[Rfam]
RNA sequence: CCGCACGAGCUCUCCCGGGCUUCUCUGAAUCUCUGCCUUUGAAGAAAAAAGCCCCAAUGUUCGUGCUAAAACCAUGCCGCUUUACGUGUUGCAGAAUUGCCUAGCUCUUCUAUCGGCUCUUCUGUGUCAAAUCAGCGGCUACAUCU
Numbered sequence: 001c002c003g004c005a006c007g008a009g010c011u012c013u014c015c016c017g018g019g020c021u022u023c024u025c026u027g028a029a030u031c032u033c034u035g036c037c038u039u040u041g042a043a044g045a046a047a048a049a050a051g052c053c054c055c056a057a058u059g060u061u062c063g064u065g066c067u068a069a070a071a072c073c074a075u076g077c078c079g080c081u082u083u084a085c086g087u088g089u090u091g092c093a094g095a096a097u098u099g100c101c102u103a104g105c106u107c108u109u110c111u112a113u114c115g116g117c118u119c120u121u122c123u124g125u126g127u128c129a130a131a132u133c134a135g136c137g138g139c140u141a142c143a144u145c146u
Base pairs, nucleotide, nucleotide: 003066004065005064006063007062008061009060010059017054018053019052020051021050022048024045025044026043076139077138078137079136080135081134087129088128090126091125092124093123094122095121099117100116101115
RNA: small nucleolar RNA snoR134
Organism: Durio zibethinus